Rfam assigns this 63-nucleotide RNA sequence from Erwinia sp. 198 to the family "Pseudomonas sRNA P26". For this family Rfam cites "Identification of 17 Pseudomonas aeruginosa sRNAs and prediction of sRNA-encoding genes in 10 diverse pathogens using the bioinformatic tool sRNAPredict2" (Livny et al., Nucleic Acids Res, 2006). Rfam describes the family as follows. This small RNA (sRNA) was computationally identified in the genome of the opportunistic pathogen Pseudomonas aeruginosa and its expression verified by northern blot analysis. P26 is conserved across many Gammaproteobacteria species and appears to be consistently located between the DNA directed RNA polymerase (beta subunit) and 50S ribosomal protein L7/L12 genes.
[Rfam]
RNA sequence: ACCUUUCAGGUUGCAGUCUGAGUUAAUCAGACUGACGGCUGGUGACUUUUUGGUCACCAGCCU
Number, nucleotide and partner (000 for none) at each position: 001a000002c000003c000004u000005u000006u000007c000008a000009g000010g000011u000012u000013g000014c034015a033016g032017u031018c030019u000020g000021a000022g000023u000024u000025a000026a000027u000028c000029a000030g018031a017032c016033u015034g014035a000036c000037g062038g061039c060040u059041g058042g057043u056044g055045a054046c053047u000048u000049u000050u000051u000052g000053g046054u045055c044056a043057c042058c041059a040060g039061c038062c037063u000